RNA sequence: UGGCGCCACAACGUGGGGCUCCAGCACGGGGGAAUUUAGUGACGGACGCUGUUCAAGAGGCCGGCAAAAAUAAAAGUGAAAGAAAGAGGACAAGAUUGCGUGGGAACCUGCUACGCUUUCUAGACCUCGGUAAGUGAACAGUGAUUAUGGGACAAGAAAUAAGUCAAUAUGAAAUGUUUGUUGAAGGCUUAGGAAAAGUCUUAAAGGCACGAGGAGUAAAGGUUAAAAUUAAGCGUUUGUGUGAGUAUUUUGACUUUAUUGAACAAGUCUGCCC
Numbered sequence: 001u002g003g004c005g006c007c008a009c010a011a012c013g014u015g016g017g018g019c020u021c022c023a024g025c026a027c028g029g030g031g032g033a034a035u036u037u038a039g040u041g042a043c044g045g046a047c048g049c050u051g052u053u054c055a056a057g058a059g060g061c062c063g064g065c066a067a068a069a070a071u072a073a074a075a076g077u078g079a080a081a082g083a084a085a086g087a088g089g090a091c092a093a094g095a096u097u098g099c100g101u102g103g104g105a106a107c108c109u110g111c112u113a114c115g116c117u118u119u120c121u122a123g124a125c126c127u128c129g130g131u132a133a134g135u136g137a138a139c140a141g142u143g144a145u146u147a148u149g150g151g152a153c154a155a156g157a158a159a160u161a162a163g164u165c166a167a168u169a170u171g172a173a174a175u176g177u178u179u180g181u182u183g184a185a186g187g188c189u190u191a192g193g194a195a196a197a198g199u200c201u202u203a204a205a206g207g208c209a210c211g212a213g214g215a216g217u218a219a220a221g222g223u224u225a226a227a228a229u230u231a232a233g234c235g236u237u238u239g240u241g242u243g244a245g246u247a248u249u250u251u252g253a254c255u256u257u258a259u260u261g262a263a264c265a266a267g268u269c270u271g272c273c274c
Stems, first nucleotide, its partner, number of pairs: 006032002009030001013027003037051004086128004094120002099115005135154002139151001142149002160203003163199002210252005216246002220238004
Shown here is a 274-nucleotide RNA sequence from Chinchilla lanigera, a member of the family "Mason-Pfizer monkey virus packaging signal". The base pairs follow the family's consensus structure, which was predicted with PFOLD. A search with the family's covariance model found it, with a score of 102 bits. The family's RNA type in Rfam is cis-regulatory element.